[Rfam]
RNA sequence: CGUGCCCUAGCGCCUAACUCCGUCGCCGGGCACCUAGCCGGGAGUUCCGGGCAGACGGAGGUGGGGGACCCACGAGAGCCCAACGGGCUCUACCGGCCGCAUCACGCGGCCUUGGGGUGUAGCCGGGAGAAACCCGGCCGGGCAGCCUGACGCCCGAACCCGACAGCUAACCCCAUCGGCGCUCGUCAGGAGAGGA
Numbered sequence: 001c002g003u004g005c006c007c008u009a010g011c012g013c014c015u016a017a018c019u020c021c022g023u024c025g026c027c028g029g030g031c032a033c034c035u036a037g038c039c040g041g042g043a044g045u046u047c048c049g050g051g052c053a054g055a056c057g058g059a060g061g062u063g064g065g066g067g068a069c070c071c072a073c074g075a076g077a078g079c080c081c082a083a084c085g086g087g088c089u090c091u092a093c094c095g096g097c098c099g100c101a102u103c104a105c106g107c108g109g110c111c112u113u114g115g116g117g118u119g120u121a122g123c124c125g126g127g128a129g130a131a132a133c134c135c136g137g138c139c140g141g142g143c144a145g146c147c148u149g150a151c152g153c154c155c156g157a158a159c160c161c162g163a164c165a166g167c168u169a170a171c172c173c174c175a176u177c178g179g180c181g182c183u184c185g186u187c188a189g190g191a192g193a194g195g196a
Stems, first nucleotide, its partner, number of pairs: 011181004018060007061176006071114002115161003123137004140155004
Rfam assigns this 196-nucleotide RNA sequence from Kineosphaera limosa to the family "c-di-AMP riboswitch aptamer (ydaO/yuaA leader)". The organism belongs to Kineosphaera limosa, within Bacteria.